S4-Flavobacteria ribosomal protein leader: a 31-nucleotide RNA sequence. The family's consensus secondary structure is taken from published work. Rfam's curators put it in the seed alignment. For this family Rfam cites "Discovery of 20 novel ribosomal leader candidates in bacteria and archaea" (Eckert and Weinberg, BMC Microbiol, 2020). Rfam classes the family as a cis-regulatory leader.

RNA sequence: AAUUAUCGAAGGACUGCCUUAAUUCAUAGUU
Numbered sequence: 001a002a003u004u005a006u007c008g009a010a011g012g013a014c015u016g017c018c019u020u021a022a023u024u025c026a027u028a029g030u031u
Stems, first nucleotide, its partner, number of pairs: 001031006008025001009020004